[Rfam]
The record is a 46-nucleotide sequence from Fuerstiella sp., which matches "Acido-Lenti-1 RNA" in Rfam. The family has 87 seed sequences and 2,607 matches in Rfam 15.1. The match comes from Rfam's covariance-model search (38 bits).
RNA sequence: CCUGUGGCUAAAGCCACAGGCUAUCACUUUCCGCUGCUCCGCAGCG
Number, nucleotide and partner (000 for none) at each position: 001c020002c019003u018004g017005u016006g015007g014008c013009u000010a000011a000012a000013g008014c007015c006016a005017c004018a003019g002020g001021c000022u000023a000024u000025c000026a000027c000028u000029u000030u000031c000032c000033g045034c044035u043036g042037c041038u000039c000040c000041g037042c036043a035044g034045c033046g000